This 118-nucleotide RNA from Halonatronomonas betaini belongs to the Rfam family "FMN riboswitch aptamer (RFN element)".
RNA sequence: UUAUGCUGACGGGGAGUGGUGAAAUUCCAUACCGGUGGUUAAAGUCCACAAGCCCAACGGGGUUGAAUUGGUGAAAUUCCAAUACCGACAGUUAAAGUCUGGAUGAGAGUUAGCCUUG
Numbered sequence: 001u002u003a004u005g006c007u008g009a010c011g012g013g014g015a016g017u018g019g020u021g022a023a024a025u026u027c028c029a030u031a032c033c034g035g036u037g038g039u040u041a042a043a044g045u046c047c048a049c050a051a052g053c054c055c056a057a058c059g060g061g062g063u064u065g066a067a068u069u070g071g072u073g074a075a076a077u078u079c080c081a082a083u084a085c086c087g088a089c090a091g092u093u094a095a096a097g098u099c100u101g102g103a104u105g106a107g108a109g110u111u112a113g114c115c116u117u118g
Base pairs, nucleotide, nucleotide: 003116005114006113007112008111009110010109017029018028019027031098032097033087034086035049036048037047038046044085045084052063053062054061067083068082069081070080071079089101090100091099